[Rfam]
RNA sequence: AGGGUGUGGGAUAGGCUUACCUCCACGUGGUGCACCCUGGGCAACGUAUAAUUAUACGGCAGAAAAGUCUAU
Numbered sequence: 001a002g003g004g005u006g007u008g009g010g011a012u013a014g015g016c017u018u019a020c021c022u023c024c025a026c027g028u029g030g031u032g033c034a035c036c037c038u039g040g041g042c043a044a045c046g047u048a049u050a051a052u053u054a055u056a057c058g059g060c061a062g063a064a065a066a067g068u069c070u071a072u
Stems, first nucleotide, its partner, number of pairs: 001038007019031003045058005
The record is a 72-nucleotide RNA sequence from Rodentolepis nana, which matches "HDV ribozyme from F. prausnitzii" in Rfam. The source organism's lineage runs through Eukaryota, Metazoa, Eumetazoa, Platyhelminthes and Rodentolepis. Rfam 15.1 lists 3,803 matches to the family in 91 species.